[Rfam]
RNA sequence: UGGUGAUGAUGACACAGCUAAGGCUUGUUUCUCAACAUUCGCAGUAUCCGCCUAAGAGCUUUCGCCCUGCCAGGCUUGAGAGCUUGUGCUGUUAGUUUCUUCCUUGGAUGUCUGAGCCU
Numbered sequence: 001u002g003g004u005g006a007u008g009a010u011g012a013c014a015c016a017g018c019u020a021a022g023g024c025u026u027g028u029u030u031c032u033c034a035a036c037a038u039u040c041g042c043a044g045u046a047u048c049c050g051c052c053u054a055a056g057a058g059c060u061u062u063c064g065c066c067c068u069g070c071c072a073g074g075c076u077u078g079a080g081a082g083c084u085u086g087u088g089c090u091g092u093u094a095g096u097u098u099c100u101u102c103c104u105u106g107g108a109u110g111u112c113u114g115a116g117c118c119u
Stems, first nucleotide, its partner, number of pairs: 002118003058083006
About this RNA:
A member of the RNA family "Small nucleolar RNA SNORD14" from Panicum virgatum, 119 nucleotides long. The family's RNA type in Rfam is C/D-box small nucleolar RNA. The family has 18 seed sequences and 4,559 matches in Rfam 15.1. Its family is annotated with nucleolus and RNA processing in the Gene Ontology. The literature on the family includes a 1996 paper in Nucleic Acids Res by Samarsky et al., "An essential domain in Saccharomyces cerevisiae U14 snoRNA is absent in vertebrates, but conserved in other yeasts". Rfam's curators write: U14 small nucleolar RNA (U14 snoRNA) is required for early cleavages of eukaryotic precursor rRNAs. In yeasts, this molecule possess a stem-loop region (known as the Y-domain) which is essential for function. A similar structure, but with a different consensus sequence, is found in plants, but is absent in vertebrates.